[Rfam]
Nucleotides: 105
Base pairs, nucleotide, nucleotide: 006100007099008098009097010096011095012094013093020048021047022046023045024044025043026042050084051083052082053080054079057078058077059076063071
Number, partner (000 for none) and nucleotide at each position: 001000c002000g003000a004000g005000u006100c007099c008098g009097g010096g011095c012094g013093g014000g015000a016000g017000a018000g019000a020048c021047c022046u023045c024044c025043g026042u027000g028000g029000c030000c031000g032000u033000g034000c035000g036000c037000g038000g039000c040000g041000g042026g043025c044024g045023g046022g047021g048020g049000c050084g051083c052082c053080g054079a055000a056000g057078g058077a059076g060000c061000a062000a063071c064000a065000c066000u067000c068000c069000c070000g071063g072000g073000a074000a075000a076059c077058u078057c079054u080053c081000a082052g083051g084050c085000a086000c087000c088000a089000a090000c091000u092000a093013c094012c095011g096010u097009u098008c099007g100006g101000a102000c103000g104000a105000g
This 105-nucleotide RNA sequence from Longimycelium tulufanense belongs to the Rfam family "Glycine riboswitch aptamer". This family represents the bacterial glycine riboswitch. Its family is annotated with glycine biosynthetic process in the Gene Ontology. It scores 55 bits against the family's covariance model.